RNA sequence: GCUCCGCUAGCUCAGUUGGUUAGAGCGUCGUGCUAAUAGCGCGAAGGCCACAGGUUCGACCCCUGUGCGGAGCA
Dot-bracket structure: (((((((..((((.........)))).(((((.......))))).....(((((.......)))))))))))).
tRNA: a 74-nucleotide sequence from Powellomyces hirtus. Pairs were carried over by alignment from the consensus structure, which is taken from published work.